Shown here is a 134-nucleotide RNA sequence, a member of the family "Small nucleolar RNA SNORA41". From the family's description: ACA41 is a member of the H/ACA class of snoRNA that guide the sites of modification of uridines to pseudouridines. The base pairs follow the family's consensus structure, which was predicted with PFOLD. Rfam classes the family as an H/ACA-box small nucleolar RNA. Rfam 15.1 lists 676 matches to the family in 522 species.
[Rfam]
Nucleotides: 134
Stems, first nucleotide, its partner, number of pairs: 003061004017047003021043005075123005089113007
Number, partner (000 for none) and nucleotide at each position: 001000g002000u003061c004060c005059a006058c007000a008000g009000u010000u011000a012000c013000u014000g015000g016000u017047c018046u019045g020000a021043a022042a023041c024040u025039g026000u027000u028000c029000a030000g031000g032000a033000c034000u035000g036000u037000a038000g039025c040024a041023g042022u043021u044000g045019c046018a047017g048000u049000a050000u051000u052000c053000c054000c055000u056000c057000u058006g059005u060004g061003g062000a063000a064000g065000a066000u067000a068000a069000a070000c071000u072000g073000u074000u075123a076122c077121g078120u079119a080000g081000u082000a083000u084000u085000a086000a087000g088000c089113u090112c091111c092110u093109u094108c095107u096000c097000a098000g099000a100000u101000c102000u103000u104000c105000u106000a107095a108094g109093a110092a111091g112090g113089a114000c115000u116000u117000u118000c119079u120078a121077u122076g123075u124000a125000a126000c127000a128000a129000a130000c131000a132000a133000c134000g